RNA sequence: CGGCCCGGCCGCGAAAUCCGCACAUGCGCCGUCACAUGCGGCAGGGUGCCCGCCCGCGAGGGCGGGUUUCCGUAUGGGGCGCAUGGAGGCUCAAC
Number, nucleotide and partner (000 for none) at each position: 001c000002g000003g000004c000005c000006c000007g000008g000009c000010c000011g000012c000013g000014a000015a000016a000017u000018c000019c000020g000021c000022a000023c085024a084025u083026g082027c081028g080029c079030c078031g000032u000033c000034a000035c076036a075037u074038g073039c072040g071041g070042c000043a068044g000045g000046g000047u000048g067049c066050c065051c064052g063053c000054c000055c000056g000057c000058g000059a000060g000061g000062g000063c052064g051065g050066g049067u048068u043069u000070c041071c040072g039073u038074a037075u036076g035077g000078g030079g029080c028081g027082c026083a025084u024085g023086g000087a000088g000089g000090c000091u000092c000093a000094a000095c000
Background:
Rfam assigns this 95-nucleotide sequence from Inmirania thermothiophila to the family "t44 RNA". This family consists of a number of bacterial RNA genes of between 135 and 170 bases in length. The t44 gene has been identified in several species of enteric bacteria but homologs have also been identified in Pseudomonas and Coxiella species. The t44 gene is found between the map and rpsB genes in all species in the full alignment apart from Shigella flexneri. The function of this RNA is unknown. It scores 67 bits against the family's covariance model. The family's consensus secondary structure was predicted with LocARNA. Rfam classes the family as a small RNA.